Nuclear RNase P: a 292-nucleotide sequence from Nothobranchius furzeri. It is annotated as a ribozyme. The base pairs follow the family's consensus structure, which is taken from published work. The literature on the family includes a 1998 paper in Annu Rev Biochem by Frank and Pace, "Ribonuclease P: unity and diversity in a tRNA processing ribozyme". It scores 82 bits against the family's covariance model. Lineage of the source: Eukaryota > Eumetazoa > Cyprinodontiformes > Nothobranchiidae > Nothobranchius.

[Rfam]
RNA sequence: UUUGGGUGGAAGCUUAAUGUGGAGGUAACUUACAGGAUGCUGAUCACCAUCUCAGUCACCUUCUGAGACGGGAGCCAUCAGUCGCCCCAGCAGAGUGUCACCCGAAUAAGGUGAACAGGUGACCAGAACAUGUGGCUCAGCCUAAGGAUCAGCUAGAGAAUCUCUGGCAUGUGGUGCCACAGUGGAUGUACAUCUCAGCUGACUUAAAAAAACACCUGUGGUACGCAGAUGAGUGAAUUGAAUGAGGUGGAGCACAGCCCCCGAACCCAACUCACACGUCUCUCCAUCCACA
Numbered sequence: 001u002u003u004g005g006g007u008g009g010a011a012g013c014u015u016a017a018u019g020u021g022g023a024g025g026u027a028a029c030u031u032a033c034a035g036g037a038u039g040c041u042g043a044u045c046a047c048c049a050u051c052u053c054a055g056u057c058a059c060c061u062u063c064u065g066a067g068a069c070g071g072g073a074g075c076c077a078u079c080a081g082u083c084g085c086c087c088c089a090g091c092a093g094a095g096u097g098u099c100a101c102c103c104g105a106a107u108a109a110g111g112u113g114a115a116c117a118g119g120u121g122a123c124c125a126g127a128a129c130a131u132g133u134g135g136c137u138c139a140g141c142c143u144a145a146g147g148a149u150c151a152g153c154u155a156g157a158g159a160a161u162c163u164c165u166g167g168c169a170u171g172u173g174g175u176g177c178c179a180c181a182g183u184g185g186a187u188g189u190a191c192a193u194c195u196c197a198g199c200u201g202a203c204u205u206a207a208a209a210a211a212a213c214a215c216c217u218g219u220g221g222u223a224c225g226c227a228g229a230u231g232a233g234u235g236a237a238u239u240g241a242a243u244g245a246g247g248u249g250g251a252g253c254a255c256a257g258c259c260c261c262c263g264a265a266c267c268c269a270a271c272u273c274a275c276a277c278g279u280c281u282c283u284c285c286a287u288c289c290a291c292a
Base pairs, nucleotide, nucleotide: 001292003290004289008285009284010283013246014245015244016243018241021063022062023061024060025059036048038046039045064274065273066272067271074222075221076220083097084096085095087093098114099113100112101111102110115219116218117217118216119215120214121213135203137202138201249261250260252258253257